RNA sequence: UUUCGCCCAUAGUUUAAGAGGAUGAGAACCUCCGAAGGAGGUUUGAGCCGAGCGAAGCGAGACCACGUUGCGCCAGCAACGGCCCGAAGGGCAAGCAUCGAAGAUGCGAGUAAUCCUCUCUCGCCGACCA
Numbered sequence: 001u002u003u004c005g006c007c008c009a010u011a012g013u014u015u016a017a018g019a020g021g022a023u024g025a026g027a028a029c030c031u032c033c034g035a036a037g038g039a040g041g042u043u044u045g046a047g048c049c050g051a052g053c054g055a056a057g058c059g060a061g062a063c064c065a066c067g068u069u070g071c072g073c074c075a076g077c078a079a080c081g082g083c084c085c086g087a088a089g090g091g092c093a094a095g096c097a098u099c100g101a102a103g104a105u106g107c108g109a110g111u112a113a114u115c116c117u118c119u120c121u122c123g124c125c126g127a128c129c130a
Base pairs, nucleotide, nucleotide: 017119018118019117020116021115023113034092042088043087044086045085049059050058066081067080068079069078070077071076

The record is a 130-nucleotide RNA sequence from Serratia sp. DD3, which matches "RtT RNA" in Rfam. For this family Rfam cites "A novel RNA product of the tyrT operon of Escherichia coli" (Bosl and Kersten, Nucleic Acids Res, 1991). By type it is a cis-regulatory element. The match comes from Rfam's covariance-model search (92 bits). This family represents a bacterial cis-regulatory element known as RtT RNA. The exact function of RtT is unknown although it is thought that it may be involved in changing the cellular response in relation to amino acid starvation.